[Rfam]
RNA sequence: GAGCGUCGCCCUCCUUGGGCGUUUCCUCCCUAGACUUCGGCCGCCUCGCAAGAGCGCGGCCUUUUUUUUGGCUGGA
Numbered sequence: 001g002a003g004c005g006u007c008g009c010c011c012u013c014c015u016u017g018g019g020c021g022u023u024u025c026c027u028c029c030c031u032a033g034a035c036u037u038c039g040g041c042c043g044c045c046u047c048g049c050a051a052g053a054g055c056g057c058g059g060c061c062u063u064u065u066u067u068u069u070g071g072c073u074g075g076a
Base pairs, nucleotide, nucleotide: 008020009019010018011017039061040060041059042058043057044056045054046053047052
Makes More Granules Regulator RNA (mmgR): a 76-nucleotide sequence from Stappia sediminis. The source organism's lineage runs through Bacteria, Pseudomonadati, Hyphomicrobiales, Stappiaceae and Stappia. It scores 69 bits against the family's covariance model. Rfam describes the family as follows. SuhB later renamed mmgR (makes more granules regulator) was a putative non-coding RNA found multiple times in the Agrobacterium tumefaciens genome and related alpha-proteobacteria. Other non-coding RNAs uncovered in the same analysis include: speF, ybhL, metA, and serC.Several studies inSinorhizobium meliloti showed that suhB element is indeed a non-coding RNA:firstly it was detected on Northern blot and called Sm8RNA, secondly in an RNAseq study referred to as SmelC689.The mutant phenotype's (strain lacking the small RNA) cytoplasm contains higher content of polyhydroxybutyrate (PBH)storage granules than wild type strain. The sRNA is required to limit the PBH intracellular accumulation when the nitrogen-fixing Sinorhizobium meliloti is under condition of surplus carbon in relation to nitrogen. The family is grouped with related families in Rfam's "suhB sRNA clan". It is annotated as a small RNA.